[Rfam]
RNA sequence: CCACCUUAAGAGCGCGUCGCAGCCUGGGGAGGCUCCCGGCACCGAGACCAAUG
Numbered sequence: 001c002c003a004c005c006u007u008a009a010g011a012g013c014g015c016g017u018c019g020c021a022g023c024c025u026g027g028g029g030a031g032g033c034u035c036c037c038g039g040c041a042c043c044g045a046g047a048c049c050a051a052u053g
Base pairs, nucleotide, nucleotide: 009025010024012023013022014020015019027043028042029040031037032036
Dot-bracket structure: ........((.((((...)).)))).(((.((...))..).))..........